[Rfam]
Nucleotides: 061
Stems, first nucleotide, its partner, number of pairs: 007042006028056001029053007
Number, partner (000 for none) and nucleotide at each position: 001000c002000c003000a004000c005000u006000c007042u008041u009040a010039u011038a012037c013000g014000g015000a016000a017000u018000g019000a020000a021000a022000u023000c024000c025000u026000g027000a028056u029053a030052c031051a032050u033049a034048g035047u036000g037012g038011u039010a040009u041008a042007a043000g044000u045000a046000a047035g048034c049033u050032a051031u052030g053029u054000a055000u056028a057000c058000a059000c060000u061000a
The record is a 61-nucleotide sequence from Bat coronavirus, which matches "Coronavirus 3' UTR pseudoknot" in Rfam.
From the family's description: Coronaviruses are plus-strand RNA viruses with ~30kb genomes. The 3' UTR region of coronavirus genomes contains a conserved ~55nt pseudoknot structure which has been shown to be necessary for viral genome replication. The mechanism of cis-regulation is unclear, but this element is postulated to function in the plus-strand. The seed alignment was expanded in 2020 by Eric Nawrocki.
Taxonomically the source falls in Orthocoronavirinae (Viruses, Pisuviricota, Pisoniviricetes, Coronaviridae).
On this family, see Williams et al., J Virol 1999: "A phylogenetically conserved hairpin-type 3' untranslated region pseudoknot functions in coronavirus RNA replication".
Rfam links the family to the GO term viral genome replication.
By type it is a cis-regulatory element.
Pairs were carried over by alignment from the consensus structure, which is taken from published work.